[Rfam]
RNA: ZMP/ZTP riboswitch aptamer (pfl RNA motif)
Organism: Microbacterium halimionae
RNA sequence: UCGCAUCGUCGCAACUGGCGUUGAGGUGGGCUACCACCGGGAAGCGACUGAUAACGGCAUUCGAUCGCUCGCCUGGGCCGAUGCG
Numbered sequence: 001u002c003g004c005a006u007c008g009u010c011g012c013a014a015c016u017g018g019c020g021u022u023g024a025g026g027u028g029g030g031c032u033a034c035c036a037c038c039g040g041g042a043a044g045c046g047a048c049u050g051a052u053a054a055c056g057g058c059a060u061u062c063g064a065u066c067g068c069u070c071g072c073c074u075g076g077g078c079c080g081a082u083g084c085g
Stems, first nucleotide, its partner, number of pairs: 005052003008048005015041002017073004026037004062080002065077002